This 87-nucleotide RNA from Halarsenatibacter silvermanii belongs to the Rfam family "Fluoride riboswitch aptamer (crcB RNA motif)". The base pairs follow the family's consensus structure, which is taken from published work. It scores 45 bits against the family's covariance model.

RNA sequence: AAUUCAACAGGUGAUGGAGCUCACCGCAACUGCCGCUGAUUUUUUUUAAAUUUUUUGUAACGCACGGCUGAUGGCUCCUGUUCCGCA
Number, nucleotide and partner (000 for none) at each position: 001a000002a000003u000004u000005c000006a000007a000008c000009a000010g025011g024012u023013g022014a000015u000016g078017g077018a076019g075020c074021u073022c013023a012024c011025c010026g000027c000028a000029a000030c000031u000032g068033c067034c066035g065036c000037u000038g000039a000040u000041u000042u000043u000044u000045u000046u000047u000048a000049a000050a000051u000052u000053u000054u000055u000056u000057g000058u000059a000060a000061c000062g000063c000064a000065c035066g034067g033068c032069u000070g000071a000072u000073g021074g020075c019076u018077c017078c016079u000080g000081u000082u000083c000084c000085g000086c000087a000